[Rfam]
RNA sequence: AAAGUUUGACAGACAAUCGCCGGCGGCCGAGAGGCCGCGGGAGGAAAGUCCGGGCUCCACAAGGCAGGGUGCUGGAUAACGUCCAGUCGGCGCGAGCCGAAGGAUAGUGCCACAGAAAUGGACCGCCGAUGGCCGCUUCGCUUCACGGCGCAACGCGCACAGGCAAGGAUGGAACCGAGGUGUAAGAGACCCCGAGGAACGCUGGUGACUUCGUUCCUGGUAAACCCCACCUGGAGCAAGACCUAAUGGAACGCCGCCGAUCCCGCAAGGGAGGAGGCAGCCCUCGCCUGGGGCGCGUUCGGGUUGGUCGCUGGAGCUGUGCAGCAAUGUACGGCCUAGAUAGAUGAUUGUCGCUUGACGUGGGAGGGUAGUUCCCGUUAUAACCACCAGAAGCACAGAACCCGGCUUACGGCAGACUUUCCUA
Numbered sequence: 001a002a003a004g005u006u007u008g009a010c011a012g013a014c015a016a017u018c019g020c021c022g023g024c025g026g027c028c029g030a031g032a033g034g035c036c037g038c039g040g041g042a043g044g045a046a047a048g049u050c051c052g053g054g055c056u057c058c059a060c061a062a063g064g065c066a067g068g069g070u071g072c073u074g075g076a077u078a079a080c081g082u083c084c085a086g087u088c089g090g091c092g093c094g095a096g097c098c099g100a101a102g103g104a105u106a107g108u109g110c111c112a113c114a115g116a117a118a119u120g121g122a123c124c125g126c127c128g129a130u131g132g133c134c135g136c137u138u139c140g141c142u143u144c145a146c147g148g149c150g151c152a153a154c155g156c157g158c159a160c161a162g163g164c165a166a167g168g169a170u171g172g173a174a175c176c177g178a179g180g181u182g183u184a185a186g187a188g189a190c191c192c193c194g195a196g197g198a199a200c201g202c203u204g205g206u207g208a209c210u211u212c213g214u215u216c217c218u219g220g221u222a223a224a225c226c227c228c229a230c231c232u233g234g235a236g237c238a239a240g241a242c243c244u245a246a247u248g249g250a251a252c253g254c255c256g257c258c259g260a261u262c263c264c265g266c267a268a269g270g271g272a273g274g275a276g277g278c279a280g281c282c283c284u285c286g287c288c289u290g291g292g293g294c295g296c297g298u299u300c301g302g303g304u305u306g307g308u309c310g311c312u313g314g315a316g317c318u319g320u321g322c323a324g325c326a327a328u329g330u331a332c333g334g335c336c337u338a339g340a341u342a343g344a345u346g347a348u349u350g351u352c353g354c355u356u357g358a359c360g361u362g363g364g365a366g367g368g369u370a371g372u373u374c375c376c377g378u379u380a381u382a383a384c385c386a387c388c389a390g391a392a393g394c395a396c397a398g399a400a401c402c403c404g405g406c407u408u409a410c411g412g413c414a415g416a417c418u419u420u421c422c423u424a
Stems, first nucleotide, its partner, number of pairs: 001420008010411001012352007020041002023038006046408003050405005055236004062289004067232005072086005087101001088099004102227002107225002109221003123168002125164003130159002176194002179191003196217006204209001240309004249300006280294005316335008
RNA: Bacterial RNase P class A
Organism: Paenibacillus spiritus